[Rfam]
The record is a 47-nucleotide RNA from Polerovirus GRAV, which matches "Exoribonuclease-resistant RNA (xrRNA) plant-infecting virus (class 3)" in Rfam. The source organism's lineage runs through Viruses, Pisuviricota, Sobelivirales, Polerovirus and Polerovirus GRAV. The match comes from Rfam's covariance-model search (35 bits). Rfam's curators write: Exoribonuclease-resistant RNA (xrRNA) plant-infecting virus (class 3) is a ncRNA that was reported in Plant viruses. The literature on the family includes a 2020 paper in RNA by Steckelberg et al., "The crystal structure of a Polerovirus exoribonuclease-resistant RNA shows how diverse sequences are integrated into a conserved fold".
RNA sequence: CAAUCAGCCGGAUAACUUGUUGCAAUUGCCGGAGAUUUAGUCAAGUA
Numbered sequence: 001c002a003a004u005c006a007g008c009c010g011g012a013u014a015a016c017u018u019g020u021u022g023c024a025a026u027u028g029c030c031g032g033a034g035a036u037u038u039a040g041u042c043a044a045g046u047a
Base pairs, nucleotide, nucleotide: 002036004034008032009031011030015046016045017044018043019042